[Rfam]
RNA: TPP riboswitch aptamer (THI element)
Organism: Haloactinopolyspora alba
RNA sequence: ACCGAUCGGCCGGGGUGCCCGUACCGUGGGGCUGAGAUCACACCCGCCGAACCUGAUCCGGGUCGUGCCGGCGCAGGGAGCCGAAGGCGGUCGCGA
Numbered sequence: 001a002c003c004g005a006u007c008g009g010c011c012g013g014g015g016u017g018c019c020c021g022u023a024c025c026g027u028g029g030g031g032c033u034g035a036g037a038u039c040a041c042a043c044c045c046g047c048c049g050a051a052c053c054u055g056a057u058c059c060g061g062g063u064c065g066u067g068c069c070g071g072c073g074c075a076g077g078g079a080g081c082c083g084a085a086g087g088c089g090g091u092c093g094c095g096a
Stems, first nucleotide, its partner, number of pairs: 006084005011046004016040001017032004052077004058071004